[Rfam]
RNA sequence: CAAAGUCUUCAGGGCAGGGUGUAAUUCCCGACCGGCGGUAUAGUCCGCGAACGCGAAAGCGUACGAUUUGGUGCAAUUCCAAAACCGACAGUAUAGUCUGGAUGGAAGAAGGCGUGC
Numbered sequence: 001c002a003a004a005g006u007c008u009u010c011a012g013g014g015c016a017g018g019g020u021g022u023a024a025u026u027c028c029c030g031a032c033c034g035g036c037g038g039u040a041u042a043g044u045c046c047g048c049g050a051a052c053g054c055g056a057a058a059g060c061g062u063a064c065g066a067u068u069u070g071g072u073g074c075a076a077u078u079c080c081a082a083a084a085c086c087g088a089c090a091g092u093a094u095a096g097u098c099u100g101g102a103u104g105g106a107a108g109a110a111g112g113c114g115u116g117c
Base pairs, nucleotide, nucleotide: 003115005113006112007111008110009109010108017029018028019027031097032096033087034086035048036047037046038045043085044084067083068082069081070080071079089100090099091098

Background: Shown here is a 117-nucleotide sequence from Yeguia hominis, a member of the family "FMN riboswitch aptamer (RFN element)". The family's consensus secondary structure is taken from published work. Rfam's curators write: The RFN element is a highly conserved domain that is found frequently in the 5'-untranslated regions of prokaryotic mRNAs that encode for flavin mononucleotide (FMN) biosynthesis and transport proteins. NCBI's taxonomy places the organism under Bacteria, Bacillati, Eubacteriales, Yeguiaceae, Yeguia. A search with the family's covariance model found it, with a score of 113 bits. Gene Ontology term of the family: FMN binding.